[Rfam]
RNA sequence: AGGUCCCGAUUCACAUUCAUUGCUGUCGGUGGGUUUUUUCCCCUCUGAAACGGCUCGACUCGCCGAACAAUGAAUGAACACCGUGGCCA
Numbered sequence: 001a002g003g004u005c006c007c008g009a010u011u012c013a014c015a016u017u018c019a020u021u022g023c024u025g026u027c028g029g030u031g032g033g034u035u036u037u038u039u040c041c042c043c044u045c046u047g048a049a050a051c052g053g054c055u056c057g058a059c060u061c062g063c064c065g066a067a068c069a070a071u072g073a074a075u076g077a078a079c080a081c082c083g084u085g086g087c088c089a
Stems, first nucleotide, its partner, number of pairs: 003088001004086002007083002014076009026066006033059003
RNA: mir-181 microRNA precursor family
Organism: Clupea harengus